The family of this 120-nucleotide RNA from Streptomyces marincola is "SAM (S-adenosyl methionine) riboswitch aptamer".
The base pairs follow the family's consensus structure, which is taken from published work.
For this family Rfam cites "The aptamer core of SAM-IV riboswitches mimics the ligand-binding site of SAM-I riboswitches" (Weinberg et al., RNA, 2008).

RNA sequence: GGUCACGAGUGACAGCACGCAUGGACCCCGGUCCGCUGUCCGGCAACCCUCCUUCCGUGGCGGGGUGCUCCCGGGUGAUGACCGGGCCGCGGGCAGCAAGGUCCGCGGCAAGCGCGGAUU
Numbered sequence: 001g002g003u004c005a006c007g008a009g010u011g012a013c014a015g016c017a018c019g020c021a022u023g024g025a026c027c028c029c030g031g032u033c034c035g036c037u038g039u040c041c042g043g044c045a046a047c048c049c050u051c052c053u054u055c056c057g058u059g060g061c062g063g064g065g066u067g068c069u070c071c072c073g074g075g076u077g078a079u080g081a082c083c084g085g086g087c088c089g090c091g092g093g094c095a096g097c098a099a100g101g102u103c104c105g106c107g108g109c110a111a112g113c114g115c116g117g118a119u120u
Base pairs, nucleotide, nucleotide: 001083002082003081004080009041011040012039013038014037015036016035024033025032042069043068044067047065048064049063051060052059086109087108088107089106090105091104092103093102094101

Rfam links the family to the GO terms S-adenosylmethionine metabolic process and regulation of gene expression.